[Rfam]
RNA sequence: GGGAGUUCUUGGGUGACACAUCCUGGAAUUGGGCUCCCUCCUCUCUGGUUCUGGGGUGCGUCACCCGAGAACCACU
Numbered sequence: 001g002g003g004a005g006u007u008c009u010u011g012g013g014u015g016a017c018a019c020a021u022c023c024u025g026g027a028a029u030u031g032g033g034c035u036c037c038c039u040c041c042u043c044u045c046u047g048g049u050u051c052u053g054g055g056g057u058g059c060g061u062c063a064c065c066c067g068a069g070a071a072c073c074a075c076u
Stems, first nucleotide, its partner, number of pairs: 002075001005072013019058005025052009
Dot-bracket structure: .(..(((((((((((((.(((((.(((((((((..........))))))))).))))).)))))))))))))..).

Shown here is a 76-nucleotide RNA from Pipistrellus kuhlii, a member of the family "mir-9223 microRNA precursor family". The match comes from Rfam's covariance-model search (86 bits). The organism belongs to Pipistrellus, within Eukaryota.